[Rfam]
RNA sequence: GUCAAGAACCCGCCACUUAAACUCCGAAGAGUUUUGAAGUGGGGGCUUGUGGAAAACAACAAACCUGCUUGACUGCCCUAAGUGCUUCGGGCACUGCGUUACCCGGGAAUAGAUAGGCGCCGGCGGACGCGCAUCCGAAUCUGCCGCUCUGCGGUGUGUGGUUAAACGACUCUGAAGGUAAGGAGCGGUGCCGCGCAUACAAAACCCUGGGAUAACAUUGGGGGCGGAUACCUGA
Numbered sequence: 001g002u003c004a005a006g007a008a009c010c011c012g013c014c015a016c017u018u019a020a021a022c023u024c025c026g027a028a029g030a031g032u033u034u035u036g037a038a039g040u041g042g043g044g045g046c047u048u049g050u051g052g053a054a055a056a057c058a059a060c061a062a063a064c065c066u067g068c069u070u071g072a073c074u075g076c077c078c079u080a081a082g083u084g085c086u087u088c089g090g091g092c093a094c095u096g097c098g099u100u101a102c103c104c105g106g107g108a109a110u111a112g113a114u115a116g117g118c119g120c121c122g123g124c125g126g127a128c129g130c131g132c133a134u135c136c137g138a139a140u141c142u143g144c145c146g147c148u149c150u151g152c153g154g155u156g157u158g159u160g161g162u163u164a165a166a167c168g169a170c171u172c173u174g175a176a177g178g179u180a181a182g183g184a185g186c187g188g189u190g191c192c193g194c195g196c197a198u199a200c201a202a203a204a205c206c207c208u209g210g211g212a213u214a215a216c217a218u219u220g221g222g223g224g225c226g227g228a229u230a231c232c233u234g235a
Base pairs, nucleotide, nucleotide: 001073002072003071004070005069006068008066010045011044013042014041021032022031023030024029047062048061049060076222077221078220080218081095082094083093084092085091098216099215100214101213103210104209105208106207107206117152118151121146122145123144124143125142126141127140129232131231133229134228135227136226137225154198155197156196157195158194159193160192161191162190166189167188170185171184172182173180174179
A member of the RNA family "HNH endonuclease-associated RNA and ORF (HEARO) RNA", 235 nucleotides long. The literature on the family includes a 2009 paper in Nature by Weinberg et al., "Exceptional structured noncoding RNAs revealed by bacterial metagenome analysis". The sequence is in the family's curated seed alignment. The family's RNA type in Rfam is non-coding RNA gene.